RNA sequence: CGGCACGUCAAAGUGGUGGGUGAUUUGUCGACUUGCUCAUAUCACAGCCAGCUUUGAUGUGCUGUA
Dot-bracket structure: ....(((((((((((((.(.(((..(((..........))))))).)))).)))))))))......
RNA: mir-2 microRNA precursor family